[Rfam]
RNA sequence: CCCGAGACUAGAGUCACAUCCCGGCCCUCCCCGUGCCUACGGUGUGCUAGAGUUUUCGGAAAGCAAUCGCUGCGCUUUAUUCACUGGUUGGUCCUCGCUGUGGAUCAUCCAGUCACCGGCUCAGUGACACGU
Dot-bracket structure: .((((((((..((.((((((..(((.........)))...))))))))..))).)))))..........(((.(((......(((((.((((((.......)))))).)))))....))).)))........
RNA: Small nucleolar RNA SNORA3/SNORA45 family
Organism: Eleutherodactylus coqui